Shown here is a 135-nucleotide RNA from Urocitellus parryii, a member of the family "Small Cajal body specific RNA 11". By type it is a small Cajal body RNA. About the family: scaRNAs are a specific class of small nuclear RNAs which localise to the Cajal bodies and guide the modification of RNA polymerase II transcribed spliceosomal RNAs U1, U2, U4, U5 and U12. ACA57 belongs to the H/ACA box class of guide RNAs as it has the predicted hairpin-hinge-hairpin-tail structure, conserved H/ACA-box motifs and is found associated with GAR1. ACA57 is predicted to guide the pseudouridylation of the U5 spliceosomal RNA at position U43. Rfam links the family to the GO terms Cajal body, nucleolus and RNA processing.

[Rfam]
RNA sequence: CCACUUGAGCCACAUCCCCAGCCCCCCUGUACUCAGUUUUAACAGGGUGGUUUAGCAAUGUACCUAGAAAUCCCCCUCUCAGUUUAGGAGGGCCAUACUAAGUAGGAGUGGCUAUUAAAGGCACAAGAAAAUAAU
Numbered sequence: 001c002c003a004c005u006u007g008a009g010c011c012a013c014a015u016c017c018c019c020a021g022c023c024c025c026c027c028u029g030u031a032c033u034c035a036g037u038u039u040u041a042a043c044a045g046g047g048u049g050g051u052u053u054a055g056c057a058a059u060g061u062a063c064c065u066a067g068a069a070a071u072c073c074c075c076c077u078c079u080c081a082g083u084u085u086a087g088g089a090g091g092g093c094c095a096u097a098c099u100a101a102g103u104a105g106g107a108g109u110g111g112c113u114a115u116u117a118a119a120g121g122c123a124c125a126a127g128a129a130a131a132u133a134a135u
Stems, first nucleotide, its partner, number of pairs: 003061002006058001010055001021051003025047006077128003082122004088116002091113004096107001098105002